[Rfam]
RNA sequence: GGGUCCGUGGUCUAGUUGGUUAUGACGCGGCCUUUACAAGGCCGAAAUCGGCGGUUCAACUCCGCCCGGGCCCA
Numbered sequence: 001g002g003g004u005c006c007g008u009g010g011u012c013u014a015g016u017u018g019g020u021u022a023u024g025a026c027g028c029g030g031c032c033u034u035u036a037c038a039a040g041g042c043c044g045a046a047a048u049c050g051g052c053g054g055u056u057c058a059a060c061u062c063c064g065c066c067c068g069g070g071c072c073c074a
Stems, first nucleotide, its partner, number of pairs: 001073007010026003028044005050066005

Rfam assigns this 74-nucleotide RNA sequence from Halapricum desulfuricans to the family "tRNA". It is annotated as a transfer RNA. A search with the family's covariance model found it, with a score of 65 bits. Its family is annotated with triplet codon-amino acid adaptor activity in the Gene Ontology. The base pairs follow the family's consensus structure, which is taken from published work.